c-di-GMP-I riboswitch aptamer: a 104-nucleotide RNA sequence from Thermanaeromonas sp. C210.
The family's consensus secondary structure is taken from published work.
Lineage of the source: Bacteria > Bacillota > Neomoorellales > Neomoorellaceae > Thermanaeromonas.
About the family: GEMM was predicted in a large-scale screen for bacterial structured RNA regulatory elements.
RNA sequence: UUAUGUCAAGGGCAAGCUCUCCGAAAGGGGAAGCGCGCAAAGCCAUGGGUCUACGGCCCCGGCUCCUUAAAGAAGCAAGGGGCUAAGAUCGCCAGGCUGCCGUU
Numbered sequence: 001u002u003a004u005g006u007c008a009a010g011g012g013c014a015a016g017c018u019c020u021c022c023g024a025a026a027g028g029g030g031a032a033g034c035g036c037g038c039a040a041a042g043c044c045a046u047g048g049g050u051c052u053a054c055g056g057c058c059c060c061g062g063c064u065c066c067u068u069a070a071a072g073a074a075g076c077a078a079g080g081g082g083c084u085a086a087g088a089u090c091g092c093c094a095g096g097c098u099g100c101c102g103u104u
Base pairs, nucleotide, nucleotide: 012038013037017033018031019030020029021028022027041098042097043096044095046094047093048092049089050088051087056083057082058081059080